Shown here is a 170-nucleotide sequence from Paenibacillus contaminans, a member of the family "c-di-AMP riboswitch aptamer (ydaO/yuaA leader)".

[Rfam]
RNA sequence: UCCGUAUCUAUGUUGAAUUCCCGUGAGGGAAACGGGGGAACCAUCCGGGCUCGUUCCUAUAUAGAAUGGGUCCAUGGGGUGAAUCGCUUGCUUGCUUACGCCGGCAAGUGUAGGGCACUCUCAAGCCCGAAUCCGACAGCUAACCUCGUAAACGCAUUGAGAGAGAAACC
Numbered sequence: 001u002c003c004g005u006a007u008c009u010a011u012g013u014u015g016a017a018u019u020c021c022c023g024u025g026a027g028g029g030a031a032a033c034g035g036g037g038g039a040a041c042c043a044u045c046c047g048g049g050c051u052c053g054u055u056c057c058u059a060u061a062u063a064g065a066a067u068g069g070g071u072c073c074a075u076g077g078g079g080u081g082a083a084u085c086g087c088u089u090g091c092u093u094g095c096u097u098a099c100g101c102c103g104g105c106a107a108g109u110g111u112a113g114g115g116c117a118c119u120c121u122c123a124a125g126c127c128c129g130a131a132u133c134c135g136a137c138a139g140c141u142a143a144c145c146u147c148g149u150a151a152a153c154g155c156a157u158u159g160a161g162a163g164a165g166a167a168a169c170c
Stems, first nucleotide, its partner, number of pairs: 011154004018031003032149006042076002077134003085110008113128004

Background: Its family is annotated with cyclic-di-AMP binding and regulation of gene expression in the Gene Ontology.